[Rfam]
RNA: raiA RNA
RNA sequence: CCCGCCCGGGUCCGUGGUUGCGCCGGACGACAGGUCGACUCUUCGGCCGCGUUCCGGCAAGCCGAUGCCAGCCGCAGGCGAAACGGCCCACGUAAGGCGACUUCUCGUCGACCGAUCACGGUGCGGCUUAGAAGUAAGCCCUGCCCCGCCGGAGGGUCAGAUGCCCUCCGACCCGGGAGAAGGGGAGUAGUGGCAUCCAGCAACCUUGCCGCCGCGAAACCCUCCGCAGGCGGAUGUGGGGACGAAGACCAGGUCGGCCGGGCGGG
Numbered sequence: 001c002c003c004g005c006c007c008g009g010g011u012c013c014g015u016g017g018u019u020g021c022g023c024c025g026g027a028c029g030a031c032a033g034g035u036c037g038a039c040u041c042u043u044c045g046g047c048c049g050c051g052u053u054c055c056g057g058c059a060a061g062c063c064g065a066u067g068c069c070a071g072c073c074g075c076a077g078g079c080g081a082a083a084c085g086g087c088c089c090a091c092g093u094a095a096g097g098c099g100a101c102u103u104c105u106c107g108u109c110g111a112c113c114g115a116u117c118a119c120g121g122u123g124c125g126g127c128u129u130a131g132a133a134g135u136a137a138g139c140c141c142u143g144c145c146c147c148g149c150c151g152g153a154g155g156g157u158c159a160g161a162u163g164c165c166c167u168c169c170g171a172c173c174c175g176g177g178a179g180a181a182g183g184g185g186a187g188u189a190g191u192g193g194c195a196u197c198c199a200g201c202a203a204c205c206u207u208g209c210c211g212c213c214g215c216g217a218a219a220c221c222c223u224c225c226g227c228a229g230g231c232g233g234a235u236g237u238g239g240g241g242a243c244g245a246a247g248a249c250c251a252g253g254u255c256g257g258c259c260g261g262g263c264g265g266g
Stems, first nucleotide, its partner, number of pairs: 001266009012257003015251005065237003068078001070128007087121002092116001096112001098110004119244001140230005145177004181223004190215002198208003